[Rfam]
RNA: RT-14 RNA
Organism: Desulfotomaculum copahuensis
RNA sequence: CUCUGGUUAUUAGCGAGAUUGUAAAGGUUUACGGACCUUUGCACAGGGCCACCAGACCAAAGGAGCCCUAUUCCUUCCCUAUUUAGGGUAAAAAUACAAGCUGCGAAGGGUAUCUAGUAGCAGGCCGAACGAUAUCCUUCGCU
Numbered sequence: 001c002u003c004u005g006g007u008u009a010u011u012a013g014c015g016a017g018a019u020u021g022u023a024a025a026g027g028u029u030u031a032c033g034g035a036c037c038u039u040u041g042c043a044c045a046g047g048g049c050c051a052c053c054a055g056a057c058c059a060a061a062g063g064a065g066c067c068c069u070a071u072u073c074c075u076u077c078c079c080u081a082u083u084u085a086g087g088g089u090a091a092a093a094a095u096a097c098a099a100g101c102u103g104c105g106a107a108g109g110g111u112a113u114c115u116a117g118u119a120g121c122a123g124g125c126c127g128a129a130c131g132a133u134a135u136c137c138u139u140c141g142c143u
Base pairs, nucleotide, nucleotide: 003055004054005053006052007051013049014048020043021042022041023040024039025038026037027036028035077088078087079086080085103142104141105140106139107138108137109136110135111134112133113132114131120126